[Rfam]
RNA sequence: UGCUGGUCAUCACAUCAACGAAGUUCGCCUGCUGCUCGCAGAUGAUGCGCGUAAUGCGGUCGCGGUCUUCCUGGGUCAGCAAAUUGAUAUAGUUAUGCGCCAGUUCGUUACUGAGGAUGUUGGUGCCGUCGCUGAUGCGCAGGAUGCAGAUCCCCACCGGCGCCGAUGCGACAAUCUUGCGGUUGAACUGUUCAUGUUCCUCCAGCCGGAACGCGUUGUCUUCCGCCGGCAGGAACAUUUUGCGUUCAAAUAGCCACGCCAGGGUAAACAGCACGAUAGCCGACAGCAGGUUGAGCAGUAUCGCGUUGAGGAUCAGCAUUUUAAAACGCUCGAUCACGCUCUUCACCGGCAAGGCAUAGACGAUGCUCAGCGACGACGGCGGCAAUGCUUUUUUCAGGAUCAAAUCAUGGUAGCUGUCGACGUAGCCAAAAUAGGUGUGAUCUUCCGGAUAAUUGGUGAGCGAGGAGGCAUAACGUUCGCCGUCGG
Numbered sequence: 001u002g003c004u005g006g007u008c009a010u011c012a013c014a015u016c017a018a019c020g021a022a023g024u025u026c027g028c029c030u031g032c033u034g035c036u037c038g039c040a041g042a043u044g045a046u047g048c049g050c051g052u053a054a055u056g057c058g059g060u061c062g063c064g065g066u067c068u069u070c071c072u073g074g075g076u077c078a079g080c081a082a083a084u085u086g087a088u089a090u091a092g093u094u095a096u097g098c099g100c101c102a103g104u105u106c107g108u109u110a111c112u113g114a115g116g117a118u119g120u121u122g123g124u125g126c127c128g129u130c131g132c133u134g135a136u137g138c139g140c141a142g143g144a145u146g147c148a149g150a151u152c153c154c155c156a157c158c159g160g161c162g163c164c165g166a167u168g169c170g171a172c173a174a175u176c177u178u179g180c181g182g183u184u185g186a187a188c189u190g191u192u193c194a195u196g197u198u199c200c201u202c203c204a205g206c207c208g209g210a211a212c213g214c215g216u217u218g219u220c221u222u223c224c225g226c227c228g229g230c231a232g233g234a235a236c237a238u239u240u241u242g243c244g245u246u247c248a249a250a251u252a253g254c255c256a257c258g259c260c261a262g263g264g265u266a267a268a269c270a271g272c273a274c275g276a277u278a279g280c281c282g283a284c285a286g287c288a289g290g291u292u293g294a295g296c297a298g299u300a301u302c303g304c305g306u307u308g309a310g311g312a313u314c315a316g317c318a319u320u321u322u323a324a325a326a327c328g329c330u331c332g333a334u335c336a337c338g339c340u341c342u343u344c345a346c347c348g349g350c351a352a353g354g355c356a357u358a359g360a361c362g363a364u365g366c367u368c369a370g371c372g373a374c375g376a377c378g379g380c381g382g383c384a385a386u387g388c389u390u391u392u393u394u395c396a397g398g399a400u401c402a403a404a405u406c407a408u409g410g411u412a413g414c415u416g417u418c419g420a421c422g423u424a425g426c427c428a429a430a431a432u433a434g435g436u437g438u439g440a441u442c443u444u445c446c447g448g449a450u451a452a453u454u455g456g457u458g459a460g461c462g463a464g465g466a467g468g469c470a471u472a473a474c475g476u477u478c479g480c481c482g483u484c485g486g
Base pairs, nucleotide, nucleotide: 002104003103004102005101006100007099008097009096010095012093013092014090015089021085022084030081031080032079033078034077038076039075042072044070045069047066048065051063052062106485107484112479113478114477115476119474120473121472123471124470125469126468129466130465142153143152144151145150159383161381162380163379164378165377167375168374176229177228179226180225181224182223186217187216188215190214191213195211197209199208233368234367236365237364238363239362244259245258279302316357319354320353321352322351328344332340398418399417400416421439422438423437424436426434441463442462444460448457450455